[Rfam]
Nucleotides: 193
Stems, first nucleotide, its partner, number of pairs: 011154001013152001025145008037052004086096002098121004103116003123137005165192001171186004
Number, partner (000 for none) and nucleotide at each position: 001000u002000a003000a004000u005000u006000u007000u008000g009000g010000u011154g012000u013152g014000u015000u016000a017000u018000u019000a020000u021000a022000a023000u024000a025145a026144u027143a028142c029141g030140g031139u032138g033000a034000a035000u036000c037052c038051c039050c040049c041000u042000g043000u044000g045000c046000g047000g048000c049040g050039g051038g052037g053000c054000g055000g056000c057000a058000g059000u060000g061000a062000a063000u064000g065000g066000g067000g068000c069000g070000g071000c072000a073000u074000u075000u076000u077000u078000c079000u080000c081000c082000a083000a084000g085000a086096c087095g088000g089000g090000a091000c092000u093000a094000a095087c096086g097000c098121g099120g100119a101118c102000a103116g104115a105114g106000u107000g108000u109000a110000c111000u112000g113000g114105c115104u116103u117000u118101g119100u120099u121098c122000a123137c124136c125135g126134g127133g128000a129000g130000g131000c132000a133127c134126c135125c136124g137123g138032c139031a140030c141029c142028g143027u144026a145025u146000g147000u148000u149000a150000u151000a152013u153000u154011c155000a156000g157000u158000g159000u160000u161000g162000g163000a164000a165192c166000g167000a168000a169000u170000c171186c172185c173184c174183c175000u176000a177000a178000g179000c180000g181000g182000c183174g184173g185172g186171g187000c188000a189000u190000c191000a192165g193000c
Annotation: The record is a 193-nucleotide RNA from Pantoea vagans, which matches "Gammaproteobacterial sRNA STnc100" in Rfam. Pairs were carried over by alignment from the consensus structure, which was predicted with CMfinder. The organism belongs to Pantoea, within Bacteria. The family's RNA type in Rfam is small RNA. Rfam 15.1 lists 137 matches to the family in 112 species.